[Rfam]
RNA: TPP riboswitch aptamer (THI element)
RNA sequence: CUCGUCUCGCUGGGGUGUCUGUCCGAAAGGAUGGGCUGAGAAAAACCCAUAGAACCUGAACCAGGUCAUGCUGGCGGAGGAAGUUCGAGAUGGCAAGGG
Numbered sequence: 001c002u003c004g005u006c007u008c009g010c011u012g013g014g015g016u017g018u019c020u021g022u023c024c025g026a027a028a029g030g031a032u033g034g035g036c037u038g039a040g041a042a043a044a045a046c047c048c049a050u051a052g053a054a055c056c057u058g059a060a061c062c063a064g065g066u067c068a069u070g071c072u073g074g075c076g077g078a079g080g081a082a083g084u085u086c087g088a089g090a091u092g093g094c095a096a097g098g099g
Stems, first nucleotide, its partner, number of pairs: 006089004011049004016043001017036007055080003061074004